RNA sequence: GGUAAGGUGGCCGAGUAAUAGGCGGCGGAUUGUAGCUCCGUGUACAGAGGUUCAAGUCCUCUUCUUAUCA
Numbered sequence: 001g002g003u004a005a006g007g008u009g010g011c012c013g014a015g016u017a018a019u020a021g022g023c024g025g026c027g028g029a030u031u032g033u034a035g036c037u038c039c040g041u042g043u044a045c046a047g048a049g050g051u052u053c054a055a056g057u058c059c060u061c062u063u064c065u066u067a068u069c070a
Base pairs, nucleotide, nucleotide: 001069002068003067004066005065006064007063010023011022012021025041026040027039028038029037046062047061048060049059050058
Dot-bracket structure: (((((((..(((........))).(((((.......)))))....(((((.......)))))))))))).